[Rfam]
RNA: tRNA
Organism: Salinisphaera orenii
RNA sequence: UGGGGGAUCGUCUAAUGGUAGGACUACGGACUCUGACUCCGUCAGUGGGGGUUCGAAUCCCUCUCCCCCAG
Numbered sequence: 001u002g003g004g005g006g007a008u009c010g011u012c013u014a015a016u017g018g019u020a021g022g023a024c025u026a027c028g029g030a031c032u033c034u035g036a037c038u039c040c041g042u043c044a045g046u047g048g049g050g051g052u053u054c055g056a057a058u059c060c061c062u063c064u065c066c067c068c069c070a071g
Stems, first nucleotide, its partner, number of pairs: 001070007010024004026042005047063005
Dot-bracket structure: (((((((..((((.......)))).(((((.......)))))....(((((.......)))))))))))).